[Rfam]
RNA: Y RNA
RNA sequence: AGUUGGUCCGCGGGUUGUGGGUUAUUGAUAAGUUCUUUAACAUUGUCUCCCCCCACAACCGUACUUGACUAGCUUUGC
Numbered sequence: 001a002g003u004u005g006g007u008c009c010g011c012g013g014g015u016u017g018u019g020g021g022u023u024a025u026u027g028a029u030a031a032g033u034u035c036u037u038u039a040a041c042a043u044u045g046u047c048u049c050c051c052c053c054c055a056c057a058a059c060c061g062u063a064c065u066u067g068a069c070u071a072g073c074u075u076u077g078c
Stems, first nucleotide, its partner, number of pairs: 001074008010066001014062002016057006026042002030038002